This 65-nucleotide RNA from Oryza meridionalis belongs to the Rfam family "MIR2907 microRNA precursor family". Rfam 15.1 lists 136 matches to the family in 8 species. It scores 64 bits against the family's covariance model. Gene Ontology terms of the family: RISC complex and miRNA-mediated post-transcriptional gene silencing.
RNA sequence: UAGCACCCCUUCCUCCACCCACUCGGUCGCCACGUGGCAGCUGAGUGAGGGCCUUGGGGCGGCCC
Number, nucleotide and partner (000 for none) at each position: 001u000002a000003g063004c062005a000006c000007c059008c058009c057010u056011u000012c000013c000014u000015c000016c000017a000018c051019c050020c049021a000022c045023u044024c043025g042026g041027u040028c000029g000030c037031c036032a000033c000034g000035u000036g031037g030038c000039a000040g027041c026042u025043g024044a023045g022046u000047g000048a000049g020050g019051g018052c000053c000054u000055u000056g010057g009058g008059g007060c000061g000062g004063c003064c000065c000